[Rfam]
RNA sequence: AUCCUUAUAGGAAAGCGUUUACCUAAAAGUCAUGGUUACGUAAAUAAGCUAUAGCGAGUAGCUUAAUUUCUUUCAAAUCCCUCCUAGUCAGGGGGAUUUUUU
Number, nucleotide and partner (000 for none) at each position: 001a000002u012003c011004c010005u009006u000007a000008u000009a005010g004011g003012a002013a000014a000015g041016c040017g039018u038019u000020u000021a036022c035023c034024u000025a000026a000027a000028a000029g000030u000031c000032a000033u000034g023035g022036u021037u000038a018039c017040g016041u015042a000043a000044a000045u065046a064047a063048g062049c061050u060051a059052u058053a000054g000055c000056g000057a000058g052059u051060a050061g049062c048063u047064u046065a045066a000067u000068u000069u000070c000071u000072u000073u000074c000075a099076a098077a097078u096079c095080c094081c093082u000083c092084c091085u090086a000087g000088u000089c000090a085091g084092g083093g081094g080095g079096a078097u077098u076099u075100u000101u000102u000
This 102-nucleotide RNA from Lactococcus lactis belongs to the Rfam family "Lactococcus lactis non-coding RNA 147". It is annotated as a small RNA. Hundreds of novel RNAs were identified by Meulen et al. LLnc147 was shown to be involved in carbon uptake and metabolism.